[Rfam]
The record is a 102-nucleotide RNA sequence from Neiella litorisoli, which matches "Alpha operon ribosome binding site" in Rfam. The family's consensus secondary structure is taken from published work.

RNA sequence: ACAGGUUAUUGGUUGAGUAUCCUUACGGGCUUUUCAAAUCAAUGACCCAUAAAUAGAGGAGUGCUGUUAAUGGCCCGUAUAGCCGGCAUUAACGUCCCUGAC
Numbered sequence: 001a002c003a004g005g006u007u008a009u010u011g012g013u014u015g016a017g018u019a020u021c022c023u024u025a026c027g028g029g030c031u032u033u034u035c036a037a038a039u040c041a042a043u044g045a046c047c048c049a050u051a052a053a054u055a056g057a058g059g060a061g062u063g064c065u066g067u068u069a070a071u072g073g074c075c076c077g078u079a080u081a082g083c084c085g086g087c088a089u090u091a092a093c094g095u096c097c098c099u100g101a102c
Stems, first nucleotide, its partner, number of pairs: 004047010021086002026077004034101003
The bacterial alpha operon ribosome binding site is surrounded by this complex pseudoknotted structure. Translation of the mRNA produces 4 ribosomal protein products, one of which (S4) acts as a translational repressor by binding to the nested pseudoknot region. The mechanism of repression is thought to involve a conformational switch in the pseudoknot region and ribosome entrapment. It scores 81 bits against the family's covariance model. NCBI's taxonomy places the organism under Bacteria, Pseudomonadati, Pseudomonadota, Alteromonadales, Neiella.